[Rfam]
RNA sequence: AAGGGUGAAAACCCUUGAUACUGUAGUGGAAAUCAUAAACAAGAAGAGUUCUGAAUCGCUUGGGCAGAACUAAAACAAAAAGACAAGCAUUAUUAUA
Numbered sequence: 001a002a003g004g005g006u007g008a009a010a011a012c013c014c015u016u017g018a019u020a021c022u023g024u025a026g027u028g029g030a031a032a033u034c035a036u037a038a039a040c041a042a043g044a045a046g047a048g049u050u051c052u053g054a055a056u057c058g059c060u061u062g063g064g065c066a067g068a069a070c071u072a073a074a075a076c077a078a079a080a081a082g083a084c085a086a087g088c089a090u091u092a093u094u095a096u097a
Stems, first nucleotide, its partner, number of pairs: 001016006048070006058088004